[Rfam]
Rfam assigns this 87-nucleotide RNA from Triticum turgidum to the family "MIR1120/MIR1122 microRNA precursor family".
It scores 89 bits against the family's covariance model.
Lineage of the source: Eukaryota > Euphyllophyta > Triticeae > Triticum > Triticum turgidum.
RNA sequence: AUACUCCCUCAGUCCCAUAAUAUAAGAAUAUUUUUGACACUAGUGUAGUGUCAAAAACAUUCUUAUAUUAUGGGACGGAUGGGGUAA
Numbered sequence: 001a002u003a004c005u006c007c008c009u010c011a012g013u014c015c016c017a018u019a020a021u022a023u024a025a026g027a028a029u030a031u032u033u034u035u036g037a038c039a040c041u042a043g044u045g046u047a048g049u050g051u052c053a054a055a056a057a058c059a060u061u062c063u064u065a066u067a068u069u070a071u072g073g074g075a076c077g078g079a080u081g082g083g084g085u086a087a
Stems, first nucleotide, its partner, number of pairs: 003085003007081001009079002013075005019069011031057011